About this RNA: The family of this 53-nucleotide RNA sequence from Centaurea solstitialis is "Plastid-ccsA-ndhD-2 3UTR RNA". By type it is a cis-regulatory element.
RNA sequence: CCGGCGAGAACCAUAUGAAUCAAGGAGUGUAGUGAUUCACGUGGUUCUCCGCG
Number, nucleotide and partner (000 for none) at each position: 001c000002c000003g000004g000005c000006g049007a048008g047009a046010a045011c044012c043013a042014u041015a000016u039017g038018a037019a036020u035021c034022a033023a000024g000025g000026a000027g000028u000029g000030u000031a000032g000033u022034g021035a020036u019037u018038c017039a016040c000041g014042u013043g012044g011045u010046u009047c008048u007049c006050c000051g000052c000053g000
Pairs were carried over by alignment from the consensus structure, which was predicted with LocARNA. About the family: Plastid ccsA-ndhD-2 is a non-coding RNA (ncRNA) recognised in plastids. It was found in the three prime untranslated region (3UTR) of ccsA and ndhD genes, its 3UTR location suggests a role in transcript maturation.